RNA sequence: ACGGGCACUAGGCCUUCACUGUGAAUCUGCAGAAUGCCUGUUAUACUGUCUGAGAUCAUUGUGAAAGCUAUUUGCCUUGCUUG
Numbered sequence: 001a002c003g004g005g006c007a008c009u010a011g012g013c014c015u016u017c018a019c020u021g022u023g024a025a026u027c028u029g030c031a032g033a034a035u036g037c038c039u040g041u042u043a044u045a046c047u048g049u050c051u052g053a054g055a056u057c058a059u060u061g062u063g064a065a066a067g068c069u070a071u072u073u074g075c076c077u078u079g080c081u082u083g
Stems, first nucleotide, its partner, number of pairs: 004076004011069003015065005022058003026055003031051003035045001

This 83-nucleotide sequence from Ascaris suum belongs to the Rfam family "mir-81 microRNA precursor family". The family has 10 seed sequences and 68 matches in Rfam 15.1. Taxonomically the source falls in Ascaris (Eukaryota, Bilateria, Ascaridomorpha, Ascaridoidea). Gene Ontology terms of the family: miRNA-mediated post-transcriptional gene silencing and RISC complex. On this family, see Lau et al., Science 2001: "An abundant class of tiny RNAs with probable regulatory roles in Caenorhabditis elegans".